The family of this 108-nucleotide RNA from Streptomyces sp. ICBB 8177 is "SAM (S-adenosyl methionine) riboswitch aptamer". SAM-IV is a mRNA element that regulates gene expression via direct sensing of S-adenosylmethionine (SAM or AdoMet).

RNA sequence: GGUCAUGAGUGUCGGCGACAGGCCCUGGCCCGCAGACCGGCAACCCUCGCUCCGCGGUGGUGUGCUCCAGGUGACGACCGGACCGAAGACUCUCGGUAAGCGCGAGGC
Numbered sequence: 001g002g003u004c005a006u007g008a009g010u011g012u013c014g015g016c017g018a019c020a021g022g023c024c025c026u027g028g029c030c031c032g033c034a035g036a037c038c039g040g041c042a043a044c045c046c047u048c049g050c051u052c053c054g055c056g057g058u059g060g061u062g063u064g065c066u067c068c069a070g071g072u073g074a075c076g077a078c079c080g081g082a083c084c085g086a087a088g089a090c091u092c093u094c095g096g097u098a099a100g101c102g103c104g105a106g107g108c
Stems, first nucleotide, its partner, number of pairs: 001079004009038001011037003015033002021030002039066003044062001046060001048057001082097005
The base pairs follow the family's consensus structure, which is taken from published work.
It scores 83 bits against the family's covariance model.